[Rfam]
RNA sequence: GAUCAAUGAUGAAAAUAGCAAAUCAGCAUCAGAAGAACUUCCAGUGUUCUUGAUGCGUGGUCUCUACAGUUCUGAGA
Numbered sequence: 001g002a003u004c005a006a007u008g009a010u011g012a013a014a015a016u017a018g019c020a021a022a023u024c025a026g027c028a029u030c031a032g033a034a035g036a037a038c039u040u041c042c043a044g045u046g047u048u049c050u051u052g053a054u055g056c057g058u059g060g061u062c063u064c065u066a067c068a069g070u071u072c073u074g075a076g077a
Base pairs, nucleotide, nucleotide: 026056027055028054029053030052034047036045
Overview
Rfam assigns this 77-nucleotide RNA from Carlito syrichta to the family "Small nucleolar RNA U2-19". The base pairs follow the family's consensus structure, which is taken from published work. By type it is a C/D-box small nucleolar RNA. For this family Rfam cites "Guide RNAs with 5' Caps and Novel Box C/D snoRNA-like Domains for Modification of snRNAs in Metazoa" (Tycowski et al., Curr Biol, 2004).